[Rfam]
RNA sequence: AUGCACCAGAUAUGGACCCGACUGUCCUCAGCACCAGUACACACUGGUGUCUGAGUUCCGUGAUGGUUGGGUUUUAAGAAAGGUGCCACAGAAACAGCAGCCCUGAUAUUUAAGCUCAUGAGUGUGAAGGUGCACUCUUGAGUUAUGGCUCAGAGGCACAGUG
Numbered sequence: 001a002u003g004c005a006c007c008a009g010a011u012a013u014g015g016a017c018c019c020g021a022c023u024g025u026c027c028u029c030a031g032c033a034c035c036a037g038u039a040c041a042c043a044c045u046g047g048u049g050u051c052u053g054a055g056u057u058c059c060g061u062g063a064u065g066g067u068u069g070g071g072u073u074u075u076a077a078g079a080a081a082g083g084u085g086c087c088a089c090a091g092a093a094a095c096a097g098c099a100g101c102c103c104u105g106a107u108a109u110u111u112a113a114g115c116u117c118a119u120g121a122g123u124g125u126g127a128a129g130g131u132g133c134a135c136u137c138u139u140g141a142g143u144u145a146u147g148g149c150u151c152a153g154a155g156g157c158a159c160a161g162u163g
Stems, first nucleotide, its partner, number of pairs: 003086005015073004020068007027055005032049006100157003120135001122133004136154002139152005